Record summary
A member of the RNA family "Small nucleolar RNA SNORD86" from Propithecus coquereli, 86 nucleotides long. Pairs were carried over by alignment from the consensus structure, which was predicted with RNAalifold. Lineage of the source: Eukaryota > Tetrapoda > Theria > Primates > Propithecus. It scores 98 bits against the family's covariance model. Rfam's curators write: U86 belongs to the C/D family of snoRNAs. It is the human orthologue of Xenopus laevis U86 and has no identified RNA target.
RNA sequence: GAUCACAGUGAUGGCCAGCCAGGGCUCCCUGACCCAUACAGGCAUCUGCUAUGGGGGUGAUGGCCAGUCCUGGUAUCUGAGUGAUU
Numbered sequence: 001g002a003u004c005a006c007a008g009u010g011a012u013g014g015c016c017a018g019c020c021a022g023g024g025c026u027c028c029c030u031g032a033c034c035c036a037u038a039c040a041g042g043c044a045u046c047u048g049c050u051a052u053g054g055g056g057g058u059g060a061u062g063g064c065c066a067g068u069c070c071u072g073g074u075a076u077c078u079g080a081g082u083g084a085u086u
Stems, first nucleotide, its partner, number of pairs: 001086006010077003018074009027063002030060001032058004039053002041050003